[Rfam]
RNA sequence: CGGUGAGGACAACCUCACCGCUCCACCCUUCAUCGGGGACGACCCCG
Numbered sequence: 001c002g003g004u005g006a007g008g009a010c011a012a013c014c015u016c017a018c019c020g021c022u023c024c025a026c027c028c029u030u031c032a033u034c035g036g037g038g039a040c041g042a043c044c045c046c047g
Stems, first nucleotide, its partner, number of pairs: 001020008034047005
RNA: Guanidine-II riboswitch aptamer (mini-ykkC)
Organism: Betaproteobacteria bacterium SCN2